[Rfam]
RNA sequence: CUGGAGCUGAAUUAAUGUCACAUAUCGUUCGUUUCACUGGGCUACUACUACUCAACGCAUUUAUUGUGCGCGGUAGACCGGUGGGCGGCAUUCAACAUUAAGUCAGCUCGAAGUCAAACAAAACCCGCGCCGUUGCGCGGGUUUUUUU
Numbered sequence: 001c002u003g004g005a006g007c008u009g010a011a012u013u014a015a016u017g018u019c020a021c022a023u024a025u026c027g028u029u030c031g032u033u034u035c036a037c038u039g040g041g042c043u044a045c046u047a048c049u050a051c052u053c054a055a056c057g058c059a060u061u062u063a064u065u066g067u068g069c070g071c072g073g074u075a076g077a078c079c080g081g082u083g084g085g086c087g088g089c090a091u092u093c094a095a096c097a098u099u100a101a102g103u104c105a106g107c108u109c110g111a112a113g114u115c116a117a118a119c120a121a122a123a124c125c126c127g128c129g130c131c132g133u134u135g136c137g138c139g140g141g142u143u144u145u146u147u148u
Stems, first nucleotide, its partner, number of pairs: 004109001006107005012101007025088009048076005056070004120145011
RNA: Leucine operon leader